[Rfam]
RNA sequence: CCCAGGCUGGGGCAACUUGGCUGUCACUUUAUGUGGGUUGUAAGGGGAUGUUUGGUAAGCUGUCAUCUGAGAGCUCGCUGAGUCAUUUCGUUAAGAGUCACCGCCCUAACCGAGCUCGUAGUCACUUGCGGAAUCCAUCAGUAAUGAGGGUUUCACUUGUGUUGAAGAAUCUCGCAAUGGCUUAGGCUGGAAACAGAGCAAGCAAUAGGGAUCGCUAUGAGCGGCGGAAGGAUACCGGACUCGUGAAGUGAUGUAGCUUAUCGUGACACUUAUUAAGCAGA
Numbered sequence: 001c002c003c004a005g006g007c008u009g010g011g012g013c014a015a016c017u018u019g020g021c022u023g024u025c026a027c028u029u030u031a032u033g034u035g036g037g038u039u040g041u042a043a044g045g046g047g048a049u050g051u052u053u054g055g056u057a058a059g060c061u062g063u064c065a066u067c068u069g070a071g072a073g074c075u076c077g078c079u080g081a082g083u084c085a086u087u088u089c090g091u092u093a094a095g096a097g098u099c100a101c102c103g104c105c106c107u108a109a110c111c112g113a114g115c116u117c118g119u120a121g122u123c124a125c126u127u128g129c130g131g132a133a134u135c136c137a138u139c140a141g142u143a144a145u146g147a148g149g150g151u152u153u154c155a156c157u158u159g160u161g162u163u164g165a166a167g168a169a170u171c172u173c174g175c176a177a178u179g180g181c182u183u184a185g186g187c188u189g190g191a192a193a194c195a196g197a198g199c200a201a202g203c204a205a206u207a208g209g210g211a212u213c214g215c216u217a218u219g220a221g222c223g224g225c226g227g228a229a230g231g232a233u234a235c236c237g238g239a240c241u242c243g244u245g246a247a248g249u250g251a252u253g254u255a256g257c258u259u260a261u262c263g264u265g266a267c268a269c270u271u272a273u274u275a276a277g278c279a280g281a
Base pairs, nucleotide, nucleotide: 001047002046003045004022005021007019009017010016027044028043029042049279050278051277052276053275054274055273056272057271058270061268062267063266064265065264066263068260069259070258071257078256079255080254082252083251084250085249086248087247088246089245090244097242101238102237103236105231106230110227111226112225114222115221116220117219118218119217120216121215122214123161124160125159128156130154131153132152133151134150135149136148138147139146140145163167169212170211171210172209173208178205180203181202182201187196188195189194
Dot-bracket structure: (((((.(.((.....)).).))....(((............)))))).((((((((((..((((((.((((......(((.(((((((((......(...(((.((...(((.((((((((((((..(.(((((((.(((....)))))))))).)..))).(...).(((((....(.(((....(((....)))....))).)..))))).)))))))))..)))..))....)))...).))))))))).)))))))..)))))).))))))))))..
A member of the RNA family "Metazoan signal recognition particle RNA" from Paramecium sonneborni, 281 nucleotides long. NCBI's taxonomy places the organism under Eukaryota, Ciliophora, Oligohymenophorea, Peniculida, Paramecium. The family has 91 seed sequences and 383,523 matches in Rfam 15.1. The signal recognition particle (SRP) is a universally conserved ribonucleoprotein. It is involved in the co-translational targeting of proteins to membranes. The eukaryotic SRP consists of a 300-nucleotide 7S RNA and six proteins: SRPs 72, 68, 54, 19, 14, and 9. Its Rfam clan is "SRP clan".